RNA sequence: AGUUGUUGUCGGUUGGGUGAAUAAAACUUUAUUUAUUACUCCCUAUCUCGCAACAUCGAGAUUU
Numbered sequence: 001a002g003u004u005g006u007u008g009u010c011g012g013u014u015g016g017g018u019g020a021a022u023a024a025a026a027c028u029u030u031a032u033u034u035a036u037u038a039c040u041c042c043c044u045a046u047c048u049c050g051c052a053a054c055a056u057c058g059a060g061a062u063u064u
Base pairs, nucleotide, nucleotide: 002057005054006053007052008051009050015043016042017041
RNA: Trypanosomatid snoRNA TB10Cs2H1